[Rfam]
RNA sequence: UAUAAAAGUAGUGGGCUGCACACUGGUGGAGUCAUAGGAUUAGAGAAUGCAGGCAAUAUUCAGUACUGCCCUAAGGGAAAAAGUACGAAGGGGCCACUCAGUCAUC
Number, nucleotide and partner (000 for none) at each position: 001u000002a000003u000004a000005a000006a105007a000008g103009u000010a000011g000012u000013g000014g000015g000016c000017u000018g000019c000020a000021c000022a064023c063024u062025g061026g059027u058028g057029g000030a000031g054032u053033c052034a000035u000036a000037g050038g000039a048040u047041u046042a000043g000044a000045g000046a041047a040048u039049g000050c037051a000052g033053g032054c031055a000056a000057u028058a027059u026060u000061c025062a024063g023064u022065a000066c000067u000068g000069c000070c000071c000072u000073a000074a000075g000076g000077g000078a000079a000080a000081a000082a000083g000084u000085a000086c000087g000088a000089a000090g000091g000092g000093g000094c000095c000096a000097c000098u000099c000100a000101g000102u000103c008104a000105u006106c000